[Rfam]
RNA sequence: GAUCCGGGAAUCGGCCACUACCUUGCAUUCACGUGAUGCAAAAACGCAGGUGACACUAUUCGGGAUUUAAUGGGUUACUUAUCCCACAUACUGAGUUCAGUGUCGUUUUGUGUCUUUAGUUAUAAUAGUUCAUGUGAUGUGACGUAGUGGAACAUACCUGGAU
Numbered sequence: 001g002a003u004c005c006g007g008g009a010a011u012c013g014g015c016c017a018c019u020a021c022c023u024u025g026c027a028u029u030c031a032c033g034u035g036a037u038g039c040a041a042a043a044a045c046g047c048a049g050g051u052g053a054c055a056c057u058a059u060u061c062g063g064g065a066u067u068u069a070a071u072g073g074g075u076u077a078c079u080u081a082u083c084c085c086a087c088a089u090a091c092u093g094a095g096u097u098c099a100g101u102g103u104c105g106u107u108u109u110g111u112g113u114c115u116u117u118a119g120u121u122a123u124a125a126u127a128g129u130u131c132a133u134g135u136g137a138u139g140u141g142a143c144g145u146a147g148u149g150g151a152a153c154a155u156a157c158c159u160g161g162a163u
Stems, first nucleotide, its partner, number of pairs: 003162006010155001015150007023142004029137004034132003

The record is a 163-nucleotide sequence from Drosophila gunungcola, which matches "mir-989 microRNA precursor family" in Rfam. NCBI's taxonomy places the organism under Eukaryota, Bilateria, Altocrustacea, Aparaglossata, elegans subgroup (in: flies).